[Rfam]
RNA: traJ-II RNA
Organism: Chelatococcus composti
RNA sequence: CGGCAAGAUAUGUGUUUGUAGCUACACGGCGGAGCCGCGCAGCCACAAACACCGGCCCUUACUCGCCUUUGGCUCGACGGCAUCUUGCUCUGCGAGGCG
Number, nucleotide and partner (000 for none) at each position: 001c000002g089003g088004c087005a086006a085007g084008a083009u082010a000011u000012g052013u051014g050015u049016u048017u047018g000019u045020a000021g043022c000023u000024a000025c039026a000027c037028g036029g035030c000031g000032g000033a000034g000035c029036c028037g027038c000039g025040c000041a000042g000043c021044c000045a019046c000047a017048a016049a015050c014051a013052c012053c000054g000055g000056c000057c080058c079059u000060u000061a000062c000063u000064c000065g073066c072067c071068u000069u000070u000071g067072g066073c065074u000075c000076g000077a000078c000079g058080g057081c000082a009083u008084c007085u006086u005087g004088c003089u002090c000091u000092g000093c000094g000095a000096g000097g000098c000099g000